Rfam assigns this 89-nucleotide RNA sequence from Cryobacterium tepidiphilum to the family "ZMP/ZTP riboswitch aptamer (pfl RNA motif)". The organism belongs to Cryobacterium, within Bacteria. The base pairs follow the family's consensus structure, which is taken from published work.

[Rfam]
RNA sequence: UGGACCGGUCGCGACUGGCGUAGUUCGUAGAUGGGUCACCAUCGGGGAGCGACCGACACGGUUGGUGGCCGCGCGCCUGGGCCACUCCA
Numbered sequence: 001u002g003g004a005c006c007g008g009u010c011g012c013g014a015c016u017g018g019c020g021u022a023g024u025u026c027g028u029a030g031a032u033g034g035g036u037c038a039c040c041a042u043c044g045g046g047g048a049g050c051g052a053c054c055g056a057c058a059c060g061g062u063u064g065g066u067g068g069c070c071g072c073g074c075g076c077c078u079g080g081g082c083c084a085c086u087c088c089a
Stems, first nucleotide, its partner, number of pairs: 006055007015046002017077005031042004066084005